[Rfam]
RNA sequence: CUUGUAUAAAAUUUUGAUUGUUGCUCAGAAAGCCGUGCAUUUGAUAACGUUCGCUUUCGAGUAGUAAUCAAAGUCAAAUAAAGC
Numbered sequence: 001c002u003u004g005u006a007u008a009a010a011a012u013u014u015u016g017a018u019u020g021u022u023g024c025u026c027a028g029a030a031a032g033c034c035g036u037g038c039a040u041u042u043g044a045u046a047a048c049g050u051u052c053g054c055u056u057u058c059g060a061g062u063a064g065u066a067a068u069c070a071a072a073g074u075c076a077a078a079u080a081a082a083g084c
Stems, first nucleotide, its partner, number of pairs: 002083002005080003012073007020065007028058006
Dot-bracket structure: .((.(((....(((((((.(((((((.((((((...................))))))))))))).)))))))....))).)).

This 84-nucleotide RNA sequence from Anopheles darlingi belongs to the Rfam family "mir-315 microRNA precursor family". The source organism's lineage runs through Eukaryota, Opisthokonta, Eumetazoa, Culicomorpha and argyritarsis series. It scores 74 bits against the family's covariance model.